[Rfam]
RNA sequence: ACGUUUUUUUCAUAGAGAUUUAGAUUUAAGGUUAGAAGAAUUGUGGAAGUCGUGAGACUUCCCUUUUUUUGCCUUAAAUUGUUUCCUCCUUACGCUUGAUCUUUGCUUAGUGAGGGGGAAAAUAAAAAGCGCUUUCGUGAGAAAGAGCUUUUUU
Numbered sequence: 001a002c003g004u005u006u007u008u009u010u011c012a013u014a015g016a017g018a019u020u021u022a023g024a025u026u027u028a029a030g031g032u033u034a035g036a037a038g039a040a041u042u043g044u045g046g047a048a049g050u051c052g053u054g055a056g057a058c059u060u061c062c063c064u065u066u067u068u069u070u071g072c073c074u075u076a077a078a079u080u081g082u083u084u085c086c087u088c089c090u091u092a093c094g095c096u097u098g099a100u101c102u103u104u105g106c107u108u109a110g111u112g113a114g115g116g117g118g119a120a121a122a123u124a125a126a127a128a129g130c131g132c133u134u135u136c137g138u139g140a141g142a143a144a145g146a147g148c149u150u151u152u153u154u
Stems, first nucleotide, its partner, number of pairs: 025078008035070002038068003045062007079122002082119002084116005090110003094106001124153007132145005

Rfam assigns this 154-nucleotide RNA from Bacteroides fluxus to the family "Bacteroides sRNA BTnc231".
Rfam classes the family as a small RNA.